RNA: Glutamine riboswitch aptamer (glnA leader)
RNA sequence: AUCGUUCAUUCCCUGCAUCAUUUUAAUGCAAGGAACGGAAGUAGGAAGAUAGGAAAACCUCUUUCUUUUUUAAAGAAAGGCAAGCAAGUACCGAUAAGGGAACGAGACCGAAUAUCUACCGAAGGAACGCGUU
Number, nucleotide and partner (000 for none) at each position: 001a000002u000003c129004g128005u127006u126007c125008a000009u035010u034011c033012c032013c000014u000015g000016c000017a000018u000019c000020a000021u000022u000023u000024u000025a000026a000027u000028g000029c000030a000031a000032g012033g011034a010035a009036c000037g000038g130039a000040a000041g000042u000043a000044g120045g119046a000047a000048g000049a000050u000051a000052g000053g000054a000055a000056a000057a000058c000059c000060u000061c000062u000063u000064u000065c000066u000067u000068u000069u000070u000071u000072a000073a000074a000075g000076a000077a000078a000079g000080g000081c000082a000083a000084g000085c000086a000087a000088g000089u000090a000091c000092c000093g000094a000095u000096a000097a000098g000099g000100g000101a000102a000103c000104g000105a000106g000107a000108c000109c000110g000111a000112a000113u000114a000115u000116c000117u000118a000119c045120c044121g000122a000123a000124g000125g007126a006127a005128c004129g003130c038131g000132u000133u000